Purine riboswitch aptamer: a 102-nucleotide RNA from Anaeromonas frigoriresistens. The source organism's lineage runs through Bacteria, Bacillota, Tissierellales, Thermohalobacteraceae and Anaeromonas. Rfam links the family to the GO term purine nucleobase biosynthetic process. A search with the family's covariance model found it, with a score of 81 bits. The family's consensus secondary structure is taken from published work.

[Rfam]
RNA sequence: UAAUUGAAUAGUAGAUUUAAUCAUAUAACUUCUAGAAUAUGGCUAGAAAGUCUCUACCAAGUGACCAUGAAUUACUUGACUAUGAUAAGAAAGUGUAUCUAG
Numbered sequence: 001u002a003a004u005u006g007a008a009u010a011g012u013a014g015a016u017u018u019a020a021u022c023a024u025a026u027a028a029c030u031u032c033u034a035g036a037a038u039a040u041g042g043c044u045a046g047a048a049a050g051u052c053u054c055u056a057c058c059a060a061g062u063g064a065c066c067a068u069g070a071a072u073u074a075c076u077u078g079a080c081u082a083u084g085a086u087a088a089g090a091a092a093g094u095g096u097a098u099c100u101a102g
Stems, first nucleotide, its partner, number of pairs: 018088001020086006030048006058078007